[Rfam]
RNA: Small nucleolar RNA Z247
Organism: Hordeum vulgare
RNA sequence: CCGCUCGGGGAUGCUGAGAUCAUCUCCCACGUCAUAGCUAGCCUCGACAUCGACUACAACCCCGUGAUCUUGGCCCUGGCCGCGCGGGUUGAACCGGUUAUAGUUCAAGAGCUCUACAGCCAGCUUCUGAGCUUCGACG
Numbered sequence: 001c002c003g004c005u006c007g008g009g010g011a012u013g014c015u016g017a018g019a020u021c022a023u024c025u026c027c028c029a030c031g032u033c034a035u036a037g038c039u040a041g042c043c044u045c046g047a048c049a050u051c052g053a054c055u056a057c058a059a060c061c062c063c064g065u066g067a068u069c070u071u072g073g074c075c076c077u078g079g080c081c082g083c084g085c086g087g088g089u090u091g092a093a094c095c096g097g098u099u100a101u102a103g104u105u106c107a108a109g110a111g112c113u114c115u116a117c118a119g120c121c122a123g124c125u126u127c128u129g130a131g132c133u134u135c136g137a138c139g
Base pairs, nucleotide, nucleotide: 005137006136007135008134089108090107091106092105093104094103